The family of this 85-nucleotide RNA sequence from Pulveribacter suum is "Glycine riboswitch aptamer".

RNA sequence: UGGCGCCCGUCAGGAGAGAGCCCCCGCGCGGGGCCGCCGAAGGCGCAGGCAGCGGCCAAACGCUCAGGCAAAAGGACUGGCGACA
Numbered sequence: 001u002g003g004c005g006c007c008c009g010u011c012a013g014g015a016g017a018g019a020g021c022c023c024c025c026g027c028g029c030g031g032g033g034c035c036g037c038c039g040a041a042g043g044c045g046c047a048g049g050c051a052g053c054g055g056c057c058a059a060a061c062g063c064u065c066a067g068g069c070a071a072a073a074g075g076a077c078u079g080g081c082g083a084c085a
Stems, first nucleotide, its partner, number of pairs: 008082006020034004036069003039065002043063003049056002